[Rfam]
RNA sequence: UGCUUUUUUCGCCCAGGCGGAGCUCGACCGCAAACCCAAGUAAUGGUUGAUUUUAUAGAUGACCACAAACCACAAUAUAGAGUCGAGCCAAUCUGUAGAGUACUACCGAUUGCCCCA
Number, nucleotide and partner (000 for none) at each position: 001u000002g000003c000004u000005u000006u000007u000008u000009u000010c000011g000012c000013c000014c000015a000016g000017g031018c030019g029020g028021a000022g000023c000024u000025c000026g000027a000028c020029c019030g018031c017032a000033a000034a000035c000036c000037c000038a000039a000040g000041u000042a000043a000044u000045g000046g000047u000048u000049g000050a000051u000052u000053u000054u000055a000056u000057a000058g000059a000060u000061g000062a000063c000064c000065a000066c000067a000068a000069a000070c000071c000072a000073c000074a000075a000076u000077a000078u117079a000080g115081a000082g113083u000084c000085g000086a000087g000088c000089c112090a111091a000092u109093c108094u000095g106096u105097a104098g103099a000100g000101u000102a000103c098104u097105a096106c095107c000108g093109a092110u000111u090112g089113c082114c000115c080116c000117a078